[Rfam]
Nucleotides: 102
Base pairs, nucleotide, nucleotide: 018088019087020086021085022084023083024082025081031047032046033045034044035043058078059077060076061075062074063073064072
Number, partner (000 for none) and nucleotide at each position: 001000c002000a003000a004000u005000u006000a007000a008000a009000u010000a011000u012000c013000g014000u015000u016000a017000a018088u019087a020086u021085u022084c023083g024082u025081a026000u027000a028000u029000c030000g031047u032046c033045g034044a035043u036000g037000a038000u039000a040000a041000g042000g043035a044034u045033c046032g047031a048000a049000a050000g051000u052000c053000u054000c055000u056000a057000c058078c059077c060076u061075a062074a063073a064072a065000c066000c067000g068000u069000a070000a071000a072064u073063u074062u075061u076060a077059g078058g079000a080000c081025u082024a083023c084022g085021a086020a087019u088018g089000u090000g091000g092000a093000u094000a095000u096000g097000g098000a099000a100000c101000c102000u